[Rfam]
RNA sequence: AGUGACAGAAGAGGCGCGUCUACCAGGUAGUCGGAUUGCGGAGCCCCAACUCCAAUGCAGUCAGAUCAGGGGGUAAGACGCCGAGACAACAUCAGGCCUUGGGGGCUGAUUUGUCGGUCUGGGAGGUUGAAUCCUUCGGACUGUCAUCUCAACUGAGAUGGAGUGCUUCUGGAGAA
Dot-bracket structure: .....((((((....((((((..(.....(((.((((.....................)))).)))......)..))))))...(((((.(((((..........))))))))))(((((.(((((......)))))))))).(((((((....)))))))....)))))).....

Shown here is a 176-nucleotide sequence from Enterovibrio coralii, a member of the family "Lysine riboswitch aptamer".